Iron response element I: a 34-nucleotide RNA from Cervus elaphus. The match comes from Rfam's covariance-model search (44 bits). The source organism's lineage runs through Eukaryota, Euteleostomi, Ruminantia, Cervidae and Cervus elaphus. For this family Rfam cites "Identification of the iron-responsive element for the translational regulation of human ferritin mRNA" (Hentze et al., Science, 1987).
RNA sequence: CUGUCUCUUGCUUCAACAGUGCUUGGACGAACAG
Numbered sequence: 001c002u003g004u005c006u007c008u009u010g011c012u013u014c015a016a017c018a019g020u021g022c023u024u025g026g027a028c029g030a031a032c033a034g
Stems, first nucleotide, its partner, number of pairs: 001034004008029001010028001012027005017021001